[Rfam]
RNA sequence: UGAUGCCCCUCACCCACCUCUGAAGAUCCCAGGUGGGCGAGGGAACGGAGCACGGGAUC
Number, nucleotide and partner (000 for none) at each position: 001u000002g000003a000004u000005g000006c000007c043008c042009c041010u040011c039012a000013c037014c036015c035016a034017c033018c032019u000020c000021u000022g000023a000024a000025g059026a058027u057028c056029c055030c054031a000032g018033g017034u016035g015036g014037g013038c000039g011040a010041g009042g008043g007044a000045a000046c000047g000048g000049a000050g000051c000052a000053c000054g030055g029056g028057a027058u026059c025
Antizyme RNA frameshifting stimulation element: a 59-nucleotide sequence. The family's RNA type in Rfam is frameshift element. Rfam describes the family as follows. This family represents a structural element which is found in antizyme mRNA and is known to promote frameshifting. Antizyme genes have have two partially overlapping open reading frames, the second, which encodes the functional protein requires +1 translational frameshifting. This frameshift is stimulated by a pseudoknot present 3' of the frameshift site in the antizyme mRNA. The frameshifting efficiency is dependent on the level of polyamines in the cell, when the polyamine concentration is high frameshifting is more likely to occur which leads to an increase in the quantity of functional antizyme produced. Gene Ontology term of the family: translational frameshifting.